This 63-nucleotide RNA sequence from Streptomyces sp. AJS327 belongs to the Rfam family "Actino-pnp RNA". The base pairs follow the family's consensus structure, which is taken from published work. A search with the family's covariance model found it, with a score of 68 bits. Taxonomically the source falls in Streptomyces (Bacteria, Actinomycetota, Actinomycetes, Kitasatosporales).
Nucleotides: 063
Base pairs, nucleotide, nucleotide: 001063002062003061004060005059006058007057009055010054011053012052013051017047018046019045021043022042023041024040025039026038
Number, partner (000 for none) and nucleotide at each position: 001063g002062c003061c004060g005059g006058u007057c008000c009055u010054c011053g012052g013051u014000a015000g016000u017047g018046g019045c020000c021043c022042c023041c024040g025039g026038a027000c028000g029000c030000g031000u032000c033000c034000g035000c036000g037000c038026u039025c040024c041023g042022g043021g044000a045019g046018c047017u048000u049000c050000g051013a052012u053011c054010g055009a056000a057007g058006a059005c060004c061003g062002g063001c